[Rfam]
Shown here is a 121-nucleotide RNA sequence from Streptomyces agglomeratus, a member of the family "Streptomyces-metH RNA". It scores 108 bits against the family's covariance model. The family's consensus secondary structure is taken from published work. It is annotated as a small RNA.
RNA sequence: CCGUCCGCCCCGUGGGACGCCUUCACGCCAGGGACGGGGUCACGGCUACGCUGGCCAGGUGCGCCUUCCGCCGGGAAGACGCAAAGCCGACAGCCGUCGCACCCCAGGGAGCAGAUCCAUG
Numbered sequence: 001c002c003g004u005c006c007g008c009c010c011c012g013u014g015g016g017a018c019g020c021c022u023u024c025a026c027g028c029c030a031g032g033g034a035c036g037g038g039g040u041c042a043c044g045g046c047u048a049c050g051c052u053g054g055c056c057a058g059g060u061g062c063g064c065c066u067u068c069c070g071c072c073g074g075g076a077a078g079a080c081g082c083a084a085a086g087c088c089g090a091c092a093g094c095c096g097u098c099g100c101a102c103c104c105c106a107g108g109g110a111g112c113a114g115a116u117c118c119a120u121g
Stems, first nucleotide, its partner, number of pairs: 060083004065078004086100002089098003
Dot-bracket structure: ...........................................................((((.((((......)))).))))..((.(((....))))).....................